[Rfam]
RNA: HIV primer binding site (PBS)
Organism: Lentivirus humimdef1
RNA sequence: CUCUGGUAACUAGAGAUCCCUCAGACUCUUGUAGUCAGUGUAGAAAAUCUCUAGCAGUGGCGCCCGAACAGGGACCCUAAAGCGAAAGAGAAACCAGAG
Numbered sequence: 001c002u003c004u005g006g007u008a009a010c011u012a013g014a015g016a017u018c019c020c021u022c023a024g025a026c027u028c029u030u031g032u033a034g035u036c037a038g039u040g041u042a043g044a045a046a047a048u049c050u051c052u053a054g055c056a057g058u059g060g061c062g063c064c065c066g067a068a069c070a071g072g073g074a075c076c077c078u079a080a081a082g083c084g085a086a087a088g089a090g091a092a093a094c095c096a097g098a099g
Stems, first nucleotide, its partner, number of pairs: 001099007010054008018043001020040001022038001024036003058087001061084002063073003075082001